[Rfam]
Nucleotides: 126
Stems, first nucleotide, its partner, number of pairs: 033055008106119004
Number, partner (000 for none) and nucleotide at each position: 001000c002000g003000u004000u005000c006000a007000u008000u009000a010000u011000a012000g013000u014000g015000u016000c017000a018000c019000a020000g021000g022000u023000u024000c025000a026000u027000u028000g029000u030000a031000u032000u033055a034054g035053a036052c037051c038050u039049c040048g041000u042000a043000u044000c045000u046000u047000a048040c049039g050038g051037g052036g053035u054034u055033u056000u057000u058000u059000g060000u061000u062000a063000u064000a065000u066000g067000g068000a069000c070000u071000c072000u073000g074000c075000a076000a077000a078000a079000u080000a081000c082000u083000u084000u085000a086000c087000u088000c089000a090000g091000a092000g093000u094000a095000a096000a097000g098000g099000u100000g101000c102000a103000a104000u105000g106119g107118g108117g109116c110000u111000g112000u113000u114000c115000a116109g117108c118107c119106c120000u121000u122000u123000u124000u125000u126000u
This 126-nucleotide RNA from Parashewanella curva belongs to the Rfam family "Gammaprotebacteria rimP leader". For this family Rfam cites "Premature terminator analysis sheds light on a hidden world of bacterial transcriptional attenuation" (Naville and Gautheret, Genome Biol, 2010). The source organism's lineage runs through Bacteria, Pseudomonadati, Pseudomonadota, Alteromonadales and Parashewanella.